[Rfam]
A member of the RNA family "Pseudoknot of upstream pseudoknot domain (UPD) of the 3'UTR" from Tymovirus cucumis, 31 nucleotides long.
RNA sequence: AGUGUUUUCGGCUCCACUUAAAUCGAAGCCC
Numbered sequence: 001a002g003u004g005u006u007u008u009c010g011g012c013u014c015c016a017c018u019u020a021a022a023u024c025g026a027a028g029c030c031c
Stems, first nucleotide, its partner, number of pairs: 001018004010030004014025001
By type it is a cis-regulatory element. The literature on the family includes a 1996 paper in RNA by Felden et al., "A central pseudoknotted three-way junction imposes tRNA-like mimicry and the orientation of three 5' upstream pseudoknots in the 3' terminus of tobacco mosaic virus RNA". The family's consensus secondary structure is taken from published work.